[Rfam]
Record summary:
Rfam assigns this 102-nucleotide RNA sequence from Mesobacillus selenatarsenatis to the family "Purine riboswitch aptamer". For this family Rfam cites "Riboswitches Control Fundamental Biochemical Pathways in Bacillus subtilis and Other Bacteria" (Mandal et al., Cell, 2003). Gene Ontology term of the family: purine nucleobase biosynthetic process.

RNA sequence: AAGUGAAAUUUAGUUUUCCCUCGUAUAAUAAUGGGGAUAUGGCCCAUGAGUCUCUACCCGGUAACCGUAAAUCGCCGGACUAUGAGGGAAAGUAGUUUUUAA
Numbered sequence: 001a002a003g004u005g006a007a008a009u010u011u012a013g014u015u016u017u018c019c020c021u022c023g024u025a026u027a028a029u030a031a032u033g034g035g036g037a038u039a040u041g042g043c044c045c046a047u048g049a050g051u052c053u054c055u056a057c058c059c060g061g062u063a064a065c066c067g068u069a070a071a072u073c074g075c076c077g078g079a080c081u082a083u084g085a086g087g088g089a090a091a092g093u094a095g096u097u098u099u100u101a102a
Stems, first nucleotide, its partner, number of pairs: 018088008029049001031047005058078005064072001
Annotation: It scores 88 bits against the family's covariance model.